The record is a 105-nucleotide RNA sequence from Gossypium aridum, which matches "Plant small nucleolar RNA R71" in Rfam. Lineage of the source: Eukaryota > Magnoliopsida > malvids > Malvales > Gossypium. It scores 60 bits against the family's covariance model. Its family is annotated with nucleolus and RNA processing in the Gene Ontology. Rfam classes the family as a C/D-box small nucleolar RNA. A reference for the family is Brown et al. (2003), "Plant snoRNAs: functional evolution and new modes of gene expression", Trends Plant Sci.

RNA sequence: AUCUCAUGGUGAAGGUAUCUAUGAAGCAAUUCCUUGAAUCUUUCCCAUGCCUCAUAUAUGGAUUCAUUAUCAUUUGUUGAAAAGUGGUGAUCUCAUUUCGUAGCU
Number, nucleotide and partner (000 for none) at each position: 001a105002u000003c103004u102005c100006a000007u000008g000009g000010u000011g000012a000013a000014g000015g000016u000017a000018u000019c000020u000021a000022u000023g000024a000025a000026g000027c000028a000029a000030u000031u000032c000033c000034u000035u000036g000037a000038a000039u000040c000041u000042u000043u000044c000045c000046c000047a000048u000049g000050c000051c000052u000053c000054a000055u000056a000057u000058a073059u000060g071061g000062a000063u000064u000065c000066a000067u000068u000069a000070u000071c060072a000073u058074u000075u000076g000077u000078u000079g000080a000081a000082a000083a000084g000085u000086g000087g000088u000089g000090a000091u000092c000093u000094c000095a000096u000097u000098u000099c000100g005101u000102a004103g003104c000105u001